The record is a 202-nucleotide sequence from Paenibacillus sp. JCM 10914, which matches "glmS glucosamine-6-phosphate activated ribozyme aptamer" in Rfam. Lineage of the source: Bacteria > Bacillati > Bacilli > Caryophanales > Paenibacillus.

RNA sequence: CAAGAUUUAUAAGCGCCAGAGCUUGGAACUGCGCGGGGAAUGGUGAUCUGCUUCGACAGGGAUCCCAAACGGCAGAUACAAGCUGACGAGGUGGAGGUGUUCGGAUUGUUCGGCGGGGACCUCCCGGUACUGCACCAUAACCGUAAGCUGAAUCUCGGAAAAGGAAUGGGCGACCGUUCCCACAACGAAUCAGCAAGGUGCU
Numbered sequence: 001c002a003a004g005a006u007u008u009a010u011a012a013g014c015g016c017c018a019g020a021g022c023u024u025g026g027a028a029c030u031g032c033g034c035g036g037g038g039a040a041u042g043g044u045g046a047u048c049u050g051c052u053u054c055g056a057c058a059g060g061g062a063u064c065c066c067a068a069a070c071g072g073c074a075g076a077u078a079c080a081a082g083c084u085g086a087c088g089a090g091g092u093g094g095a096g097g098u099g100u101u102c103g104g105a106u107u108g109u110u111c112g113g114c115g116g117g118g119a120c121c122u123c124c125c126g127g128u129a130c131u132g133c134a135c136c137a138u139a140a141c142c143g144u145a146a147g148c149u150g151a152a153u154c155u156c157g158g159a160a161a162a163g164g165a166a167u168g169g170g171c172g173a174c175c176g177u178u179c180c181c182a183c184a185a186c187g188a189a190u191c192a193g194c195a196a197g198g199u200g201c202u
Stems, first nucleotide, its partner, number of pairs: 020084006027077001029075004093124005101113004125143004148193001152190002163180007

From the family's description: This entry contains a glucosamine-6-phosphate activated ribozyme that is found in the mRNA for GlmS. GlmS is an enzyme that uses fructose-6-phosphate and glutamine to generate glucosamine-6-phosphate.